The family of this 547-nucleotide part of an RNA from Chironomus tentans is "Eukaryotic large subunit ribosomal RNA".
[Rfam]
RNA sequence: GGUAGUAGCAAAUAUUCGAAUGAGAUCUUGGAUGGCUGAAGUGGAGAAGGUUUUCGUGUCAACAGCAGUUGGACACGAGUUAGUCAGUCCUAAGCUCUAAGGGAAACCUGAAACGAUGAGUAGAUAUAAAACUAUAUUUAAUGUGUUGUUGAUAUAUCAAAAAUCUUUAUCAUGGUGCGAAAUUGUAUUAAUUUACAAUUUCCUCUAGCAAAGAGCGAAAGGGAAUACGGUUCCAAUUCCGUAACCUAUUGAGUAUACGUUUGUUAUUUGAAAUUCGUUUCGAAUAACAUCUCGGUAACGAGAAGCUCUCAUAGAGACGUCAAUGGGAGGUAUCGAAAGAGUUUUCUUUUCUGUUUUACAAUCGUACGUACCAUGGAAGUCUUUCAUAGAGAGAUAUGGUAUAACAGAUUGGUAGAGCAUGACAUUAAAUUGUUGUGUCGGUAUACUCUCAUUGGACCUUGAAAAUCUAUGAAAGGGACACGAUAAAUUCUCAAUAGCCUGUACCCGAAUCCGCAGCAGGUCUCCAAGAUUAAGAGUCUCUAGUCGA
Numbered sequence: 001g002g003u004a005g006u007a008g009c010a011a012a013u014a015u016u017c018g019a020a021u022g023a024g025a026u027c028u029u030g031g032a033u034g035g036c037u038g039a040a041g042u043g044g045a046g047a048a049g050g051u052u053u054u055c056g057u058g059u060c061a062a063c064a065g066c067a068g069u070u071g072g073a074c075a076c077g078a079g080u081u082a083g084u085c086a087g088u089c090c091u092a093a094g095c096u097c098u099a100a101g102g103g104a105a106a107c108c109u110g111a112a113a114c115g116a117u118g119a120g121u122a123g124a125u126a127u128a129a130a131a132c133u134a135u136a137u138u139u140a141a142u143g144u145g146u147u148g149u150u151g152a153u154a155u156a157u158c159a160a161a162a163a164u165c166u167u168u169a170u171c172a173u174g175g176u177g178c179g180a181a182a183u184u185g186u187a188u189u190a191a192u193u194u195a196c197a198a199u200u201u202c203c204u205c206u207a208g209c210a211a212a213g214a215g216c217g218a219a220a221g222g223g224a225a226u227a228c229g230g231u232u233c234c235a236a237u238u239c240c241g242u243a244a245c246c247u248a249u250u251g252a253g254u255a256u257a258c259g260u261u262u263g264u265u266a267u268u269u270g271a272a273a274u275u276c277g278u279u280u281c282g283a284a285u286a287a288c289a290u291c292u293c294g295g296u297a298a299c300g301a302g303a304a305g306c307u308c309u310c311a312u313a314g315a316g317a318c319g320u321c322a323a324u325g326g327g328a329g330g331u332a333u334c335g336a337a338a339g340a341g342u343u344u345u346c347u348u349u350u351c352u353g354u355u356u357u358a359c360a361a362u363c364g365u366a367c368g369u370a371c372c373a374u375g376g377a378a379g380u381c382u383u384u385c386a387u388a389g390a391g392a393g394a395u396a397u398g399g400u401a402u403a404a405c406a407g408a409u410u411g412g413u414a415g416a417g418c419a420u421g422a423c424a425u426u427a428a429a430u431u432g433u434u435g436u437g438u439c440g441g442u443a444u445a446c447u448c449u450c451a452u453u454g455g456a457c458c459u460u461g462a463a464a465a466u467c468u469a470u471g472a473a474a475g476g477g478a479c480a481c482g483a484u485a486a487a488u489u490c491u492c493a494a495u496a497g498c499c500u501g502u503a504c505c506c507g508a509a510u511c512c513g514c515a516g517c518a519g520g521u522c523u524c525c526a527a528g529a530u531u532a533a534g535a536g537u538c539u540c541u542a543g544u545c546g547a
Base pairs, nucleotide, nucleotide: 016032017031019029020028034545035544036543037542043525044524045523046522049505050504054078055077056076057075058074059073063071064070085501086500087499089222090221094216095215096112098110100109101108102107121207122206123205124204226243227242228241229240230239246497247496248495249494282490283489284488285487286484291302292301293300294299310471311470312469313468314467315466320455321454322453324451325450326449327448328447329446333441334440335355336354338352339351340350359411360410361409362408363407370400371399372398373397374396375395380390381389382388418437419436420435421434422433423432424431511520512519527539528538529537530536
The sequence is in the family's curated seed alignment.